[Rfam]
RNA sequence: AAGCAUUAUACCUCUUCUAGAAUUUGUCUAGCAGGUUUUAUGGUUCUUGCUGGAAGACACCCUC
Numbered sequence: 001a002a003g004c005a006u007u008a009u010a011c012c013u014c015u016u017c018u019a020g021a022a023u024u025u026g027u028c029u030a031g032c033a034g035g036u037u038u039u040a041u042g043g044u045u046c047u048u049g050c051u052g053g054a055a056g057a058c059a060c061c062c063u064c
Base pairs, nucleotide, nucleotide: 034061035060036059037056038055039054041052042051043050044049